[Rfam]
RNA: Small nucleolar RNA U109
Organism: Carlito syrichta
RNA sequence: UUGCAUGUGGAAAUGUCUGCCCCUCUUUGGGAACAGGAAUACAUUCGUAAAGUGUUCCAUUAAAAAGGGAGUUCUCAGAACUACCAACCUUAUAGUAGAGGUUGGUGGUAUGUUUCUCCUACACAA
Numbered sequence: 001u002u003g004c005a006u007g008u009g010g011a012a013a014u015g016u017c018u019g020c021c022c023c024u025c026u027u028u029g030g031g032a033a034c035a036g037g038a039a040u041a042c043a044u045u046c047g048u049a050a051a052g053u054g055u056u057c058c059a060u061u062a063a064a065a066a067g068g069g070a071g072u073u074c075u076c077a078g079a080a081c082u083a084c085c086a087a088c089c090u091u092a093u094a095g096u097a098g099a100g101g102u103u104g105g106u107g108g109u110a111u112g113u114u115u116c117u118c119c120u121a122c123a124c125a126a
Stems, first nucleotide, its partner, number of pairs: 003055004008050001016037004022031002068119004080109002084105008